[Rfam]
RNA sequence: UAUGAAGUUUGAGGCCAGAGCAGAAGUGCUGAUGGCACGGCCUGUCAGAUUCAACAAAUCUGCGAGUUCUGCU
Number, nucleotide and partner (000 for none) at each position: 001u000002a000003u000004g000005a000006a000007g000008u000009u000010u000011g000012a000013g042014g041015c040016c039017a000018g000019a073020g072021c071022a070023g069024a068025a067026g038027u037028g036029c000030u000031g000032a000033u000034g000035g000036c028037a027038c026039g016040g015041c014042c013043u000044g000045u000046c062047a061048g060049a059050u058051u057052c000053a000054a000055c000056a000057a051058a050059u049060c048061u047062g046063c000064g000065a000066g000067u025068u024069c023070u022071g021072c020073u019
The record is a 73-nucleotide RNA sequence from Alligator sinensis, which matches "Mammalian CPEB3 ribozyme" in Rfam. It scores 50 bits against the family's covariance model. Pairs were carried over by alignment from the consensus structure, which is taken from published work.